[Rfam]
RNA sequence: AUCACCGUGGUUCGAAACCAUCCCACGUAAAAAAACUAAGGGAGA
Numbered sequence: 001a002u003c004a005c006c007g008u009g010g011u012u013c014g015a016a017a018c019c020a021u022c023c024c025a026c027g028u029a030a031a032a033a034a035a036c037u038a039a040g041g042g043a044g045a
Base pairs, nucleotide, nucleotide: 006027007026008025009024010023016037
PreQ1 (pre queuosine) riboswitch aptamer: a 45-nucleotide RNA sequence from Cerasibacillus quisquiliarum. Rfam links the family to the GO term queuosine biosynthetic process. A reference for the family is Reader et al. (2004), "Identification of four genes necessary for biosynthesis of the modified nucleoside queuosine", J Biol Chem. A search with the family's covariance model found it, with a score of 52 bits. This family is a bacterial riboswitch that binds to the metabolite preQ1, an intermediate in the biosynthesis of the modified nucleoside queuosine from GTP. One example of this riboswitch is located in the leader of the Bacillus subtilis ykvJKLM (queCDEF) operon which encodes four genes necessary for queuosine production. PreQ1 binding to the riboswitch aptamer is thought to induce premature transcription termination within the leader to down-regulate expression of these genes.